[Rfam]
RNA sequence: AGUUGAUUGCGCGGCGGCCAUUCUCCUCCCGGUACCUCCGCUUCAGCUGUUCCCCUCUGGAGGCAACAACCUCCAAAACUUCAGGGCCACCAGUCUUGGUGGCCCUUUUUU
Numbered sequence: 001a002g003u004u005g006a007u008u009g010c011g012c013g014g015c016g017g018c019c020a021u022u023c024u025c026c027u028c029c030c031g032g033u034a035c036c037u038c039c040g041c042u043u044c045a046g047c048u049g050u051u052c053c054c055c056u057c058u059g060g061a062g063g064c065a066a067c068a069a070c071c072u073c074c075a076a077a078a079c080u081u082c083a084g085g086g087c088c089a090c091c092a093g094u095c096u097u098g099g100u101g102g103c104c105c106u107u108u109u110u111u
Stems, first nucleotide, its partner, number of pairs: 001048005008040001014038001016036002058075006083106010
Rfam assigns this 111-nucleotide RNA sequence from Arminella tubonensis to the family "Alphaproteobacterial ar15". Pairs were carried over by alignment from the consensus structure. The family's RNA type in Rfam is small RNA. The organism belongs to Arminella, within Bacteria.